[Rfam]
RNA sequence: AGGAGCUGCGGGACAAGAUUCUUGGGGCCACCAUUGAGAACUCCAAGAUUGUUCUGCAGAUC
Numbered sequence: 001a002g003g004a005g006c007u008g009c010g011g012g013a014c015a016a017g018a019u020u021c022u023u024g025g026g027g028c029c030a031c032c033a034u035u036g037a038g039a040a041c042u043c044c045a046a047g048a049u050u051g052u053u054c055u056g057c058a059g060a061u062c
Stems, first nucleotide, its partner, number of pairs: 003062002006059011020048008
mir-492 microRNA precursor family: a 62-nucleotide RNA sequence from Equus caballus. Gene Ontology terms of the family: RISC complex and miRNA-mediated post-transcriptional gene silencing. Lineage of the source: Eukaryota > Bilateria > Teleostomi > Amniota > Equus.